[Rfam]
RNA sequence: GGGAUAUGAUGAGUGGUAAUAAUCUCGCUACAUUGCGAGAGGGGCGCCCGCCCAAAGCCUGUUACGACAUAUUGGGCGCUCUCUUCUUACCGAUCUGAUCCC
Numbered sequence: 001g002g003g004a005u006a007u008g009a010u011g012a013g014u015g016g017u018a019a020u021a022a023u024c025u026c027g028c029u030a031c032a033u034u035g036c037g038a039g040a041g042g043g044g045c046g047c048c049c050g051c052c053c054a055a056a057g058c059c060u061g062u063u064a065c066g067a068c069a070u071a072u073u074g075g076g077c078g079c080u081c082u083c084u085u086c087u088u089a090c091c092g093a094u095c096u097g098a099u100c101c102c
Stems, first nucleotide, its partner, number of pairs: 001102004014092005024039005041082008059074001061072002
RNA: Small nucleolar RNA Z279/snoR105/snoR108